The record is an 85-nucleotide RNA sequence from Leptocoma aspasia, which matches "Small nucleolar RNA SNORD35" in Rfam. A reference for the family is Nicoloso et al. (1996), "Intron-encoded, antisense small nucleolar RNAs: the characterization of nine novel species points to their direct role as guides for the 2'-O-ribose methylation of rRNAs", J Mol Biol. It is annotated as a C/D-box small nucleolar RNA. A search with the family's covariance model found it, with a score of 70 bits. Lineage of the source: Eukaryota > Teleostomi > Dipnotetrapodomorpha > Tetrapoda > Leptocoma.

RNA sequence: UGCAAAUGAUGCCAAUCUCACGAUGGUCUGCCGAGCCCCCCGCGGGGCUGACGACACUGCCACAUGGCUUUACUGAUGCAGGUGA
Numbered sequence: 001u002g003c004a005a006a007u008g009a010u011g012c013c014a015a016u017c018u019c020a021c022g023a024u025g026g027u028c029u030g031c032c033g034a035g036c037c038c039c040c041c042g043c044g045g046g047g048c049u050g051a052c053g054a055c056a057c058u059g060c061c062a063c064a065u066g067g068c069u070u071u072a073c074u075g076a077u078g079c080a081g082g083u084g085a
Stems, first nucleotide, its partner, number of pairs: 001080004